FMN riboswitch aptamer (RFN element): a 118-nucleotide sequence from Proteiniborus sp. DW1. NCBI's taxonomy places the organism under Bacteria, Bacillati, Bacillota, Eubacteriales, Proteiniborus.
RNA sequence: UAAAAUCUUCAGGGCAGGGUGUAAUUCCCGACCGGCGGUAUAGUCCGCGAGCUGCUAAUGCAGUUGACUUGGUGAGAUUCCAAGACCGACAGUAAAGUCUGGAUGAGAGAAGGUUUUG
Dot-bracket structure: ..((((((((......(((.......))).[[((((((....[[))))..(((........)))...(((((.......)))))]])).(((....]]))).......))))))))..
Pairs were carried over by alignment from the consensus structure, which is taken from published work. From the family's description: The RFN element is a highly conserved domain that is found frequently in the 5'-untranslated regions of prokaryotic mRNAs that encode for flavin mononucleotide (FMN) biosynthesis and transport proteins. A search with the family's covariance model found it, with a score of 124 bits.